[Rfam]
RNA sequence: GGCAGUUCUUGGGUGAUGCACCCCUGAGUUGGGCUCCCUCCUCUCUGGUUCCGGGGUGCAUCACCCCGAGAAUUGCG
Numbered sequence: 001g002g003c004a005g006u007u008c009u010u011g012g013g014u015g016a017u018g019c020a021c022c023c024c025u026g027a028g029u030u031g032g033g034c035u036c037c038c039u040c041c042u043c044u045c046u047g048g049u050u051c052c053g054g055g056g057u058g059c060a061u062c063a064c065c066c067c068g069a070g071a072a073u074u075g076c077g
Stems, first nucleotide, its partner, number of pairs: 002076002005073007012065006019058005026051008
About this RNA
Shown here is a 77-nucleotide RNA from Myotis brandtii, a member of the family "mir-9223 microRNA precursor family". Rfam 15.1 lists 14,641 matches to the family in 28 species. Lineage of the source: Eukaryota > Eumetazoa > Vertebrata > Dipnotetrapodomorpha > Myotis. Pairs were carried over by alignment from the consensus structure, which was predicted with RNAalifold.